[Rfam]
Nucleotides: 124
Stems, first nucleotide, its partner, number of pairs: 007043003011039004016034001048080009090119011
Number, partner (000 for none) and nucleotide at each position: 001000g002000a003000a004000u005000a006000u007043c008042a009041c010000c011039g012038g013037g014036g015000u016034g017000c018000u019000u020000u021000c022000u023000c024000c025000u026000c027000c028000u029000c030000c031000c032000a033000u034016u035000u036014c037013c038012u039011c040000g041009g042008u043007g044000a045000u046000u047000c048080a049079a050078g051077a052076c053075c054074g055073g056072a057000u058000g059000u060000c061000c062000u063000c064000c065000u066000c067000c068000c069000a070000a071000g072056u073055c074054c075053g076052g077051u078050c079049u080048u081000c082000c083000c084000c085000a086000u087000a088000a089000a090119a091118c092117a093116c094115c095114c096113g097112u098111c099110g100109c101000c102000u103000c104000c105000u106000c107000c108000c109100g110099c111098g112097a113096c114095g115094g116093g117092u118091g119090u120000u121000u122000u123000c124000g
Notes
Alphaproteobacterial ar14: a 124-nucleotide RNA from Brucella anthropi. The sequence is in the family's curated seed alignment. Gene Ontology term of the family: biological process involved in symbiotic interaction.